RNA sequence: CUUGGAAAAUGAUGAAUGUUUUUUUCAGUUAUCCCUGUCUGAAUUUGAUGAAAAAACAUUUCUGAUUCCCAU
Numbered sequence: 001c002u003u004g005g006a007a008a009a010u011g012a013u014g015a016a017u018g019u020u021u022u023u024u025u026c027a028g029u030u031a032u033c034c035c036u037g038u039c040u041g042a043a044u045u046u047g048a049u050g051a052a053a054a055a056a057c058a059u060u061u062c063u064g065a066u067u068c069c070c071a072u
Base pairs, nucleotide, nucleotide: 002071004069005068006067007066